[Rfam]
Shown here is a 141-nucleotide sequence from Brassica rapa, a member of the family "Small nucleolar RNA snoR145".
RNA sequence: AAGCGAAGGACCCAGCAGGGAAGCGAGUAUACUCAUGAAAUGAGGCUUCUCUAACAAUUUUAUUUAACCUUCGUAUAUUUAGUCUCCAAGUGAUAAUUGAUGAUCUGUUAUCGGAUUGUCGCGAGUUCUUGGUGUAUAUAU
Number, nucleotide and partner (000 for none) at each position: 001a000002a000003g074004c073005g072006a071007a070008g069009g068010a000011c020012c019013c018014a000015g000016c000017a000018g013019g012020g011021a000022a000023g000024c000025g051026a050027g049028u000029a000030u000031a000032c044033u043034c042035a041036u040037g000038a000039a000040a036041u035042g034043a033044g032045g000046c000047u000048u000049c027050u026051c025052u000053a000054a000055c000056a000057a000058u000059u000060u000061u000062a000063u000064u000065u000066a000067a000068c009069c008070u007071u006072c005073g004074u003075a000076u000077a000078u000079u000080u000081a000082g000083u000084c000085u000086c132087c131088a130089a129090g128091u000092g127093a000094u000095a000096a000097u000098u000099g120100a119101u000102g117103a116104u115105c114106u113107g112108u000109u000110a000111u000112c107113g106114g105115a104116u103117u102118g000119u100120c099121g000122c000123g000124a000125g000126u000127u092128c090129u089130u088131g087132g086133u000134g000135u000136a000137u000138a000139u000140a000141u000
Its family is annotated with nucleolus and RNA processing in the Gene Ontology. The organism belongs to Brassica rapa, within Eukaryota.